Shown here is a 106-nucleotide RNA from Zizania palustris, a member of the family "Small nucleolar RNA Z103".
RNA sequence: UUUGAGGUGAUGAUCCUUUCCCCAACUUAUCGACUAUGAUUAUAUUGUGCGAUUUUGUGAGUUCUUCUCUCCGGAGAAGGCUUCUAAGCCAGUAGUUCUGAUCAAA
Numbered sequence: 001u002u003u004g005a006g007g008u009g010a011u012g013a014u015c016c017u018u019u020c021c022c023c024a025a026c027u028u029a030u031c032g033a034c035u036a037u038g039a040u041u042a043u044a045u046u047g048u049g050c051g052a053u054u055u056u057g058u059g060a061g062u063u064c065u066u067c068u069c070u071c072c073g074g075a076g077a078a079g080g081c082u083u084c085u086a087a088g089c090c091a092g093u094a095g096u097u098c099u100g101a102u103c104a105a106a
Stems, first nucleotide, its partner, number of pairs: 001106005
The organism belongs to Zizania, within Eukaryota.
The match comes from Rfam's covariance-model search (86 bits).
The literature on the family includes a 2003 paper in Nucleic Acids Res by Chen et al., "The high diversity of snoRNAs in plants: identification and comparative study of 120 snoRNA genes from Oryza sativa".